[Rfam]
RNA sequence: UCUCAACGAUGCGUCUCCUCCUCCCAUUGCGCAUCCUUGAGUGUUCCCCUCUGGAGGUUUCGCCGGAAACGGCACCUUCACAACUCAAAGCCGGACGCAUGUCCGGCUUUUUUUU
Number, nucleotide and partner (000 for none) at each position: 001u000002c041003u040004c039005a038006a000007c000008g035009a034010u000011g032012c031013g030014u029015c000016u000017c000018c000019u000020c000021c000022u000023c000024c000025c000026a000027u000028u000029g014030c013031g012032c011033a000034u009035c008036c000037u000038u005039g004040a003041g002042u000043g000044u000045u000046c000047c000048c000049c000050u000051c000052u080053g079054g078055a077056g076057g075058u074059u000060u000061c000062g000063c000064c000065g000066g000067a000068a000069a000070c000071g000072g000073c000074a058075c057076c056077u055078u054079c053080a052081c000082a000083a000084c000085u000086c000087a110088a109089a108090g107091c106092c105093g104094g103095a102096c101097g000098c000099a000100u000101g096102u095103c094104c093105g092106g091107c090108u089109u088110u087111u000112u000113u000114u000115u000